RNA sequence: GUGCAUCGCUCAUUCACAACGGAUCGUCCGGCACGUACCUGCCGGUGAAGGAGAAACUC
Numbered sequence: 001g002u003g004c005a006u007c008g009c010u011c012a013u014u015c016a017c018a019a020c021g022g023a024u025c026g027u028c029c030g031g032c033a034c035g036u037a038c039c040u041g042c043c044g045g046u047g048a049a050g051g052a053g054a055a056a057c058u059c
Stems, first nucleotide, its partner, number of pairs: 010051002013049004028045006
The record is a 59-nucleotide RNA sequence from Microbacterium faecale, which matches "msiK RNA" in Rfam. Rfam classes the family as a cis-regulatory element. A search with the family's covariance model found it, with a score of 64 bits. Taxonomically the source falls in Microbacterium (Bacteria, Bacillati, Actinomycetota, Actinomycetes).